Rfam assigns this 180-nucleotide RNA from Falsibacillus albus to the family "Lysine riboswitch aptamer".
The base pairs follow the family's consensus structure, which is taken from published work.
It scores 132 bits against the family's covariance model.

RNA sequence: AGUGAUGAUAGAGGUGCGGGCUUCAAUAGUAGGAACUCAGAGAAGAAUGAGCUUCAGUGAAGAGUUUUGAAAGGGAAUGUCUGCCGAAGUGAGAGGAAGCUCAUCGUUCCUUUUGCUGGUUCUGCAUUGAAUAAAUGCAGGAUUGUCAAGAUGUUAACAUCUUGGAGGGCUAUCUCACCA
Numbered sequence: 001a002g003u004g005a006u007g008a009u010a011g012a013g014g015u016g017c018g019g020g021c022u023u024c025a026a027u028a029g030u031a032g033g034a035a036c037u038c039a040g041a042g043a044a045g046a047a048u049g050a051g052c053u054u055c056a057g058u059g060a061a062g063a064g065u066u067u068u069g070a071a072a073g074g075g076a077a078u079g080u081c082u083g084c085c086g087a088a089g090u091g092a093g094a095g096g097a098a099g100c101u102c103a104u105c106g107u108u109c110c111u112u113u114u115g116c117u118g119g120u121u122c123u124g125c126a127u128u129g130a131a132u133a134a135a136u137g138c139a140g141g142a143u144u145g146u147c148a149a150g151a152u153g154u155u156a157a158c159a160u161c162u163u164g165g166a167g168g169g170c171u172a173u174c175u176c177a178c179c180a
Base pairs, nucleotide, nucleotide: 007174008173009172010171011170016084017083018082019081020080021079022077023076024075032068033067034066035065036064037063038062088117089116090115091114092113093112094111095110096109097108098107118144119143120142121141122140123139124138125137126136127135128134146165147164148163149162150161151160152159